This 41-nucleotide RNA belongs to the Rfam family "Ribosomal protein L19 leader".

RNA sequence: ACGAUGUUCCGCUGCAAUAAAAGUAUUGGAAUGAGCAUCUG
Numbered sequence: 001a002c003g004a005u006g007u008u009c010c011g012c013u014g015c016a017a018u019a020a021a022a023g024u025a026u027u028g029g030a031a032u033g034a035g036c037a038u039c040u041g
Stems, first nucleotide, its partner, number of pairs: 003039007013031001015028004
The base pairs follow the family's consensus structure, which was predicted with CMfinder. This family is a putative r-protein leader autoregulatory structure found in B. subtilis and other low-GC Gram-positive bacteria.